[Rfam]
RNA sequence: AAAGUCCGGACGUUUCAAAGUAAUAACCAAACAGAAACUACCGAGUGUUGCGCUGAUGUCAGCUAAGCCAUUAGAAGGAUUGCCGCUUUUAGAGGCGGAGCCCGAUGCGUUAUCCACAUGGAAGCGUGUCGGGAUGGCGGAACGACAUCGACGAAGCGUACACAGGGAAGCAUGCAGGCCGCAGGGGAGUCGCAGUCCCCGAAGGCAAUUUAGCCCCGUAAAGAGUGCAGAUGCGGGUGACGACGGUUUUAACGUGCGCGGAAGUCAGCACGGGCAAUGCCGCAAUGGUAAGGCAUUGUUCGGCCCGUCGGGGUUCGAAGCCG
Numbered sequence: 001a002a003a004g005u006c007c008g009g010a011c012g013u014u015u016c017a018a019a020g021u022a023a024u025a026a027c028c029a030a031a032c033a034g035a036a037a038c039u040a041c042c043g044a045g046u047g048u049u050g051c052g053c054u055g056a057u058g059u060c061a062g063c064u065a066a067g068c069c070a071u072u073a074g075a076a077g078g079a080u081u082g083c084c085g086c087u088u089u090u091a092g093a094g095g096c097g098g099a100g101c102c103c104g105a106u107g108c109g110u111u112a113u114c115c116a117c118a119u120g121g122a123a124g125c126g127u128g129u130c131g132g133g134a135u136g137g138c139g140g141a142a143c144g145a146c147a148u149c150g151a152c153g154a155a156g157c158g159u160a161c162a163c164a165g166g167g168a169a170g171c172a173u174g175c176a177g178g179c180c181g182c183a184g185g186g187g188a189g190u191c192g193c194a195g196u197c198c199c200c201g202a203a204g205g206c207a208a209u210u211u212a213g214c215c216c217c218g219u220a221a222a223g224a225g226u227g228c229a230g231a232u233g234c235g236g237g238u239g240a241c242g243a244c245g246g247u248u249u250u251a252a253c254g255u256g257c258g259c260g261g262a263a264g265u266c267a268g269c270a271c272g273g274g275c276a277a278u279g280c281c282g283c284a285a286u287g288g289u290a291a292g293g294c295a296u297u298g299u300u301c302g303g304c305c306c307g308u309c310g311g312g313g314u315u316c317g318a319a320g321c322c323g
Stems, first nucleotide, its partner, number of pairs: 012038005020032002024291001026289002041166002045163004049158002051153002054150007210317001213314006233308006239266003244260002271302011
RNA: Group II catalytic intron D1-D4-6
Organism: Puniceicoccus vermicola